This 101-nucleotide sequence from Geosporobacter ferrireducens belongs to the Rfam family "THF (Tetrahydrofolate) riboswitch aptamer". A search with the family's covariance model found it, with a score of 83 bits. Tetrahydrofolate (THF) riboswitch was first reported for Ames et al. as an RNA motif in 5' untranslated (5'-UTR)regions of folate transport and biosynthesis genes in Firmicutes genomes. Rfam links the family to the GO term tetrahydrofolate metabolic process. Pairs were carried over by alignment from the consensus structure, which is taken from published work.
[Rfam]
RNA sequence: GUCAGAGUAGGAAAUAGUGCGUAAAGUGCCGGAUGGAUGGGAAGUUGCCGCCGGACGAAAAACCAUGAAAGGUUUGCGGUACUAUUUCUGCGUCCGCUGCC
Number, nucleotide and partner (000 for none) at each position: 001g101002u000003c099004a098005g097006a000007g000008u000009a000010g089011g088012a087013a086014a085015u084016a083017g082018u081019g080020c078021g077022u076023a000024a000025a000026g056027u055028g000029c054030c053031g052032g051033a000034u050035g049036g048037a000038u000039g000040g095041g094042a093043a000044g091045u000046u000047g000048c036049c035050g034051c032052c031053g030054g029055a027056c026057g000058a000059a000060a075061a074062a073063c072064c000065a000066u000067g000068a000069a000070a000071g000072g063073u062074u061075u060076g022077c021078g020079g000080u019081a018082c017083u016084a015085u014086u013087u012088c011089u010090g000091c044092g000093u042094c041095c040096g000097c005098u004099g003100c000101c001